Rfam assigns this 122-nucleotide sequence from Bacillus manliponensis to the family "Ribosomal protein L20 leader". Its family is annotated with regulation of gene expression in the Gene Ontology. A search with the family's covariance model found it, with a score of 87 bits. From the family's description: This family is a putative r-protein leader autoregulatory structure found in B. subtilis and other low-GC Gram-positive bacteria. It is located in the 5' untranslated regions of mRNAs encoding initiation factor 3 followed by ribosomal proteins L35 and L20 (infC-rpmI-rplT). A Rho-independent transcription terminator structure that is probably involved in regulation is included at the 3' end.
RNA sequence: UAGAACAAGUAGAAGCACCCGCUUCUCACCUGAUUGACGCCUUUGCAGUUGACAGGUAAAUGUAUUUCUUUCUUAAAGAUAUUACAAGUGUGGGUGUCGUACGCCCGCACUUUUUUUGUUCG
Numbered sequence: 001u002a003g004a005a006c007a008a009g010u011a012g013a014a015g016c017a018c019c020c021g022c023u024u025c026u027c028a029c030c031u032g033a034u035u036g037a038c039g040c041c042u043u044u045g046c047a048g049u050u051g052a053c054a055g056g057u058a059a060a061u062g063u064a065u066u067u068c069u070u071u072c073u074u075a076a077a078g079a080u081a082u083u084a085c086a087a088g089u090g091u092g093g094g095u096g097u098c099g100u101a102c103g104c105c106c107g108c109a110c111u112u113u114u115u116u117u118g119u120u121c122g
Base pairs, nucleotide, nucleotide: 011026012025013024014023015022016021028057029056030055036050037049038048039046040045089109090108091107092106093105094104095103096102097101
Dot-bracket structure: ..........((((((....)))))).(((.....(((((....)).)))....)))...............................(((((((((...))))))))).............